[Rfam]
RNA sequence: UAUAAAUACGCUCCUUUGUGUGUUUUAGUAGUAGCAUAGAGAAAGUCAUUUCGUAGUGAGUUUUCUCUAUGCUUUUAUUAUACUA
Numbered sequence: 001u002a003u004a005a006a007u008a009c010g011c012u013c014c015u016u017u018g019u020g021u022g023u024u025u026u027a028g029u030a031g032u033a034g035c036a037u038a039g040a041g042a043a044a045g046u047c048a049u050u051u052c053g054u055a056g057u058g059a060g061u062u063u064u065c066u067c068u069a070u071g072c073u074u075u076u077a078u079u080a081u082a083c084u085a
Stems, first nucleotide, its partner, number of pairs: 004025008033073012
A member of the RNA family "ctRNA" from Lactococcus lactis, 85 nucleotides long. From the family's description: Rolling circle replication plasmids contain a number of mechanisms to maintain a low copy number. One of these methods is to transcribe a small RNA called ctRNA (for counter-transcribed RNA) than is transcribed on the opposite strand to RepB the replication initiation protein. ctRNA binds to the mRNA of repB and causes translational inhibition. For this family Rfam cites "Involvement of antisense RNA in replication control of the lactococcal plasmid pND324" (Duan et al., FEMS Microbiol Lett, 1998). Pairs were carried over by alignment from the consensus structure, which was predicted with ILM. It is one of the family's seed sequences.